Rfam assigns this 136-nucleotide sequence from Plutella xylostella to the family "Small nucleolar RNA psi28S-1192". Gene Ontology terms of the family: RNA processing and nucleolus. The family's RNA type in Rfam is H/ACA-box small nucleolar RNA. From the family's description: psi28S-1192 is a member of the H/ACA class of snoRNA. This family is responsible for guiding the modification of uridine 1192 to pseudouridine in Drosophila 28S rRNA. Pairs were carried over by alignment from the consensus structure, which was predicted with ILM. Taxonomically the source falls in Plutella (Eukaryota, Eumetazoa, Arthropoda, Neoptera). Rfam 15.1 lists 81 matches to the family in 36 species.

RNA sequence: AAUGGGUCUGUUUUAAUACCAGUGAAUGUAUAUCUAGUUCCCUGGCUUCGCUUUCAGACCAAAUUGAAUUCUUCAAAUUUAUCCUAGUGUGAUUGUUACUUGAUAAAAUGUGCACUGGCAUUUUGAAGAUACAAAU
Numbered sequence: 001a002a003u004g005g006g007u008c009u010g011u012u013u014u015a016a017u018a019c020c021a022g023u024g025a026a027u028g029u030a031u032a033u034c035u036a037g038u039u040c041c042c043u044g045g046c047u048u049c050g051c052u053u054u055c056a057g058a059c060c061a062a063a064u065u066g067a068a069u070u071c072u073u074c075a076a077a078u079u080u081a082u083c084c085u086a087g088u089g090u091g092a093u094u095g096u097u098a099c100u101u102g103a104u105a106a107a108a109u110g111u112g113c114a115c116u117g118g119c120a121u122u123u124u125g126a127a128g129a130u131a132c133a134a135a136u
Base pairs, nucleotide, nucleotide: 005060006059007058008057009056010055019045020044021043022042024040025039026038027036028035070129071128072127073126074125075124076123084118085117086116087115088114089113